[Rfam]
RNA sequence: AAAAAAGCUUUCUAGGGUUCCGUUUAAAGAAGUAAUAUCAUCUUUAAAGCCUGGUCCAAGAGAAAGAGUGCAACCGUAACGGUUGCAUACACGGAAGGAUAAAAGCCUGGGAGAU
Numbered sequence: 001a002a003a004a005a006a007g008c009u010u011u012c013u014a015g016g017g018u019u020c021c022g023u024u025u026a027a028a029g030a031a032g033u034a035a036u037a038u039c040a041u042c043u044u045u046a047a048a049g050c051c052u053g054g055u056c057c058a059a060g061a062g063a064a065a066g067a068g069u070g071c072a073a074c075c076g077u078a079a080c081g082g083u084u085g086c087a088u089a090c091a092c093g094g095a096a097g098g099a100u101a102a103a104a105g106c107c108u109g110g111g112a113g114a115u
Stems, first nucleotide, its partner, number of pairs: 008066005015057002020054002022051001023048008068088008090110001092113001096108003
RNA: Guanidine-I riboswitch aptamer